[Rfam]
RNA sequence: GGCGACCCUUGCGACUGUGAGUCGUGAACCUGGUCAGGCCUUAACUGGAGCAGCCAUAAGCGGUGUAACUUUGUGUGAGGGUUGCCGCCACCG
Numbered sequence: 001g002g003c004g005a006c007c008c009u010u011g012c013g014a015c016u017g018u019g020a021g022u023c024g025u026g027a028a029c030c031u032g033g034u035c036a037g038g039c040c041u042u043a044a045c046u047g048g049a050g051c052a053g054c055c056a057u058a059a060g061c062g063g064u065g066u067a068a069c070u071u072u073g074u075g076u077g078a079g080g081g082u083u084g085c086c087g088c089c090a091c092c093g
Stems, first nucleotide, its partner, number of pairs: 001089004006081006012073001014072001017069002021064005031056004039048002

Rfam assigns this 93-nucleotide RNA from Rhodopirellula baltica to the family "Bacterial small signal recognition particle RNA".
From the family's description: The signal recognition particle (SRP) is a universally conserved ribonucleoprotein involved in the co-translational targeting of proteins to membranes.
The sequence is in the family's curated seed alignment.
The family's consensus secondary structure is taken from published work.
The source organism's lineage runs through Bacteria, Planctomycetota, Pirellulaceae, Rhodopirellula and Rhodopirellula baltica.